[Rfam]
RNA sequence: CGACUCUGAAAAGCGGACACGAGGACUGUGUCCCGCCGACGGUGCAAGUCGGCCGCUGGUGUCCGGGUGACCCCGGGCGUGGUGGCCGGCGAAGCUCUCAGGCUCAUGACAGAGGGGGA
Numbered sequence: 001c002g003a004c005u006c007u008g009a010a011a012a013g014c015g016g017a018c019a020c021g022a023g024g025a026c027u028g029u030g031u032c033c034c035g036c037c038g039a040c041g042g043u044g045c046a047a048g049u050c051g052g053c054c055g056c057u058g059g060u061g062u063c064c065g066g067g068u069g070a071c072c073c074c075g076g077g078c079g080u081g082g083u084g085g086c087c088g089g090c091g092a093a094g095c096u097c098u099c100a101g102g103c104u105c106a107u108g109a110c111a112g113a114g115g116g117g118g119a
Base pairs, nucleotide, nucleotide: 001117004114005113006112007111008110015033016032017031018030035103036102037101038099039098042097044095048090049089050088051087052086053085054084055083056082057081058080
The family of this 119-nucleotide RNA from Frankia sp. R43 is "Glycine riboswitch aptamer".
The organism belongs to Frankia, within Bacteria.
Its family is annotated with glycine biosynthetic process in the Gene Ontology.
The match comes from Rfam's covariance-model search (34 bits).
From the family's description: This family represents the bacterial glycine riboswitch.